[Rfam]
RNA sequence: AGAAAAGGAGGCCUUCUCUUUCUGGUUCUUCCCAGAGUCGGGAAAAGCUGGGUUGAGAGGGUGAAAAAGAAAAAAA
Numbered sequence: 001a002g003a004a005a006a007g008g009a010g011g012c013c014u015u016c017u018c019u020u021u022c023u024g025g026u027u028c029u030u031c032c033c034a035g036a037g038u039c040g041g042g043a044a045a046a047g048c049u050g051g052g053u054u055g056a057g058a059g060g061g062u063g064a065a066a067a068a069g070a071a072a073a074a075a076a
Stems, first nucleotide, its partner, number of pairs: 014059005021052005029044005

mir-320 microRNA precursor family: a 76-nucleotide RNA sequence from Cebus imitator. For this family Rfam cites "Many novel mammalian microRNA candidates identified by extensive cloning and RAKE analysis" (Berezikov et al., Genome Res, 2006). A search with the family's covariance model found it, with a score of 85 bits. Pairs were carried over by alignment from the consensus structure, which was predicted with RNAalifold. Gene Ontology terms of the family: RISC complex, miRNA-mediated post-transcriptional gene silencing and cellular response to glucose stimulus. NCBI's taxonomy places the organism under Eukaryota, Vertebrata, Euarchontoglires, Simiiformes, Cebus.